[Rfam]
RNA sequence: GGGCUUAUUAUGACAUUUCAAAUAAUCUUAGCCAAUUUCAGUGAGAUUUUUUAUCAAUGAUCUAAAUGUUACACAAAGCUU
Numbered sequence: 001g002g003g004c005u006u007a008u009u010a011u012g013a014c015a016u017u018u019c020a021a022a023u024a025a026u027c028u029u030a031g032c033c034a035a036u037u038u039c040a041g042u043g044a045g046a047u048u049u050u051u052u053a054u055c056a057a058u059g060a061u062c063u064a065a066a067u068g069u070u071a072c073a074c075a076a077a078g079c080u081u
Stems, first nucleotide, its partner, number of pairs: 001081005